[Rfam]
RNA: Small nucleolar RNA snoR74
Organism: Dendrobium catenatum
RNA sequence: AGAAAUAUAGGGGUUGGGUGCCUCUAUUAACCUAACCUGUAAAGAAAAUAACUCCAUUAUUUUUUGGUGAAUCAUUUCUAUUUAUAAAUAACAUGGUUCAGUUAAUAGUGAUGCACAA
Numbered sequence: 001a002g003a004a005a006u007a008u009a010g011g012g013g014u015u016g017g018g019u020g021c022c023u024c025u026a027u028u029a030a031c032c033u034a035a036c037c038u039g040u041a042a043a044g045a046a047a048a049u050a051a052c053u054c055c056a057u058u059a060u061u062u063u064u065u066g067g068u069g070a071a072u073c074a075u076u077u078c079u080a081u082u083u084a085u086a087a088a089u090a091a092c093a094u095g096g097u098u099c100a101g102u103u104a105a106u107a108g109u110g111a112u113g114c115a116c117a118a
Base pairs, nucleotide, nucleotide: 005040006039007038011037012036014034016032017031055110056109057108058107059106060105061104068100069099070098071097072096073095074094